[Rfam]
RNA: Makes More Granules Regulator RNA (mmgR)
Organism: Parvibaculaceae bacterium
RNA sequence: CGCCGCAGCCCUUCCUGGGCGUUUCCUCCCUAAACUUGGGCCAUGCCGGUAACACGGCAUGGCCUCUUUCUUUUGAUCA
Numbered sequence: 001c002g003c004c005g006c007a008g009c010c011c012u013u014c015c016u017g018g019g020c021g022u023u024u025c026c027u028c029c030c031u032a033a034a035c036u037u038g039g040g041c042c043a044u045g046c047c048g049g050u051a052a053c054a055c056g057g058c059a060u061g062g063c064c065u066c067u068u069u070c071u072u073u074u075g076a077u078c079a
Base pairs, nucleotide, nucleotide: 008020009019010018011017039064040063041062042061043060044059045058046057047056